[Rfam]
RNA sequence: CCAAUUCCGUCUGCGUCCCUGCUGGAUUUAUCCAGUUGGUUCGUUGCCGGGUACAGCGGGGGAGACAUAUAUCACAGCGUGUCUCGAGCCCGGCCCCGCCUGUUAAUGUUUAGCCUACUCCUACUCUUGGUAGGGGUAGGCAUCUUCCUGCUCCCUAACCCGUAAUCAGCAUCGUG
Numbered sequence: 001c002c003a004a005u006u007c008c009g010u011c012u013g014c015g016u017c018c019c020u021g022c023u024g025g026a027u028u029u030a031u032c033c034a035g036u037u038g039g040u041u042c043g044u045u046g047c048c049g050g051g052u053a054c055a056g057c058g059g060g061g062g063a064g065a066c067a068u069a070u071a072u073c074a075c076a077g078c079g080u081g082u083c084u085c086g087a088g089c090c091c092g093g094c095c096c097c098g099c100c101u102g103u104u105a106a107u108g109u110u111u112a113g114c115c116u117a118c119u120c121c122u123a124c125u126c127u128u129g130g131u132a133g134g135g136g137u138a139g140g141c142a143u144c145u146u147c148c149u150g151c152u153c154c155c156u157a158a159c160c161c162g163u164a165a166u167c168a169g170c171a172u173c174g175u176g
Stems, first nucleotide, its partner, number of pairs: 006051004011046001013044001018039002021036006056099006062085006113141012155169002